[Rfam]
RNA sequence: GUGUGCGGAUGAUAACUACUGACGAAAGAGUCAUCGACCUCAGUUAGUGGUUGGAUGUAGUCACAU
Numbered sequence: 001g002u003g004u005g006c007g008g009a010u011g012a013u014a015a016c017u018a019c020u021g022a023c024g025a026a027a028g029a030g031u032c033a034u035c036g037a038c039c040u041c042a043g044u045u046a047g048u049g050g051u052u053g054g055a056u057g058u059a060g061u062c063a064c065a066u
Stems, first nucleotide, its partner, number of pairs: 001066005014052010030038003